This 63-nucleotide RNA from Propionispora sp. 2/2-37 belongs to the Rfam family "Fluoride riboswitch aptamer (crcB RNA motif)". A search with the family's covariance model found it, with a score of 54 bits.
RNA sequence: UUCAAUAACGGCGAUGGAGUUCGCCCUGAACCCCGUGAAAACGGUAAUGACUCCUACCACGUA
Number, nucleotide and partner (000 for none) at each position: 001u000002u000003c000004a000005a000006u000007a000008a000009c000010g025011g024012c023013g022014a000015u000016g054017g053018a052019g051020u050021u049022c013023g012024c011025c010026c000027u000028g000029a000030a000031c000032c000033c044034c043035g042036u041037g000038a000039a000040a000041a036042c035043g034044g033045u000046a000047a000048u000049g021050a020051c019052u018053c017054c016055u000056a000057c000058c000059a000060c000061g000062u000063a000